[Rfam]
RNA sequence: AAAUAGCAAACGCUUAAUCCUAAUAGGAGCGGGGGAACCACUUUUUGGGGUGAAUCUAAUAGUAAGUUUAAGUCUAGAGCUGAGUUCAAGUAAAAUAAUGAGUAGUUCACAAUUUACUUAUACUUAAUCUUAAACUUAGUCUUGAUUAUUAGUAGGGCUAUCCUUUUAGUCCGAAUCCGACAGCUAACCUCGUCAGCGUGAAAGGGAGACCAG
Numbered sequence: 001a002a003a004u005a006g007c008a009a010a011c012g013c014u015u016a017a018u019c020c021u022a023a024u025a026g027g028a029g030c031g032g033g034g035g036a037a038c039c040a041c042u043u044u045u046u047g048g049g050g051u052g053a054a055u056c057u058a059a060u061a062g063u064a065a066g067u068u069u070a071a072g073u074c075u076a077g078a079g080c081u082g083a084g085u086u087c088a089a090g091u092a093a094a095a096u097a098a099u100g101a102g103u104a105g106u107u108c109a110c111a112a113u114u115u116a117c118u119u120a121u122a123c124u125u126a127a128u129c130u131u132a133a134a135c136u137u138a139g140u141c142u143u144g145a146u147u148a149u150u151a152g153u154a155g156g157g158c159u160a161u162c163c164u165u166u167u168a169g170u171c172c173g174a175a176u177c178c179g180a181c182a183g184c185u186a187a188c189c190u191c192g193u194c195a196g197c198g199u200g201a202a203a204g205g206g207a208g209a210c211c212a213g
Stems, first nucleotide, its partner, number of pairs: 011198004018028003029193006039047002048178003056152008155172004

Rfam assigns this 213-nucleotide RNA from Orenia metallireducens to the family "c-di-AMP riboswitch aptamer (ydaO/yuaA leader)". Rfam's curators write: This family represents a conserved RNA structure found upstream of the ydaO and yuaA genes in Bacillus subtilis and related genes in other bacteria.